This 118-nucleotide sequence from Plutella xylostella belongs to the Rfam family "mir-8517 microRNA precursor family". Taxonomically the source falls in Plutella (Eukaryota, Pterygota, Lepidoptera, Plutellidae).
RNA sequence: UUACAGAACGUUUUAGCUAAUGAACUGCUUUGUUUGUUAGACAAAGACUCUGACAAAGAACAAAUUGUUUCUUGACAGAGAGGCACAAAGCAGUUCAAUAGCUAAAACGUUCUGUAAC
Numbered sequence: 001u002u003a004c005a006g007a008a009c010g011u012u013u014u015a016g017c018u019a020a021u022g023a024a025c026u027g028c029u030u031u032g033u034u035u036g037u038u039a040g041a042c043a044a045a046g047a048c049u050c051u052g053a054c055a056a057a058g059a060a061c062a063a064a065u066u067g068u069u070u071c072u073u074g075a076c077a078g079a080g081a082g083g084c085a086c087a088a089a090g091c092a093g094u095u096c097a098a099u100a101g102c103u104a105a106a107a108c109g110u111u112c113u114g115u116a117a118c
Stems, first nucleotide, its partner, number of pairs: 001117006011107009021097008029079006059069004